Rfam assigns this 69-nucleotide RNA from Kutzneria viridogrisea to the family "ASpks TB sRNA".
[Rfam]
RNA sequence: CUUCACCGAGCCCAGCCACAGGGGCCGCUCGCGGUCCUUGCCGUAGGUGGUGAGCAGGGCCUGGGCCUC
Number, nucleotide and partner (000 for none) at each position: 001c000002u000003u000004c000005a000006c000007c000008g000009a000010g000011c000012c000013c000014a000015g025016c024017c023018a000019c000020a000021g000022g000023g017024g016025c015026c000027g000028c065029u064030c063031g000032c059033g000034g000035u000036c000037c054038u053039u052040g000041c050042c049043g048044u000045a000046g000047g000048u043049g042050g041051u000052g039053a038054g037055c000056a000057g000058g000059g032060c000061c000062u000063g030064g029065g028066c000067c000068u000069c000

Overview: Rfam classes the family as an antisense RNA. The organism belongs to Kutzneria viridogrisea, within Bacteria. The family has 77 seed sequences and 9,052 matches in Rfam 15.1. It scores 70 bits against the family's covariance model.